Shown here is an 81-nucleotide RNA sequence from Desulforhopalus singaporensis, a member of the family "c-di-GMP-I-GGC riboswitch aptamer". The source organism's lineage runs through Bacteria, Thermodesulfobacteriota, Desulfobulbia, Desulfobulbales and Desulforhopalus. For this family Rfam cites "Bioinformatic analysis of riboswitch structures uncovers variant classes with altered ligand specificity" (Weinberg et al., Proc Natl Acad Sci U S A, 2017). It scores 72 bits against the family's covariance model. Clan: c-di-GMP_I riboswitch clan.
RNA sequence: AAAGAAAAAGCCAAACUUGUCGACAGACAAGGACGGAAAGUUACGGGUCUUAAACGUAAAAAGAUAGCCGGACUGCCUUUG
Numbered sequence: 001a002a003a004g005a006a007a008a009a010g011c012c013a014a015a016c017u018u019g020u021c022g023a024c025a026g027a028c029a030a031g032g033a034c035g036g037a038a039a040g041u042u043a044c045g046g047g048u049c050u051u052a053a054a055c056g057u058a059a060a061a062a063g064a065u066a067g068c069c070g071g072a073c074u075g076c077c078u079u080u081g
Stems, first nucleotide, its partner, number of pairs: 003078002011036002016031006034067001039074004044070003047065005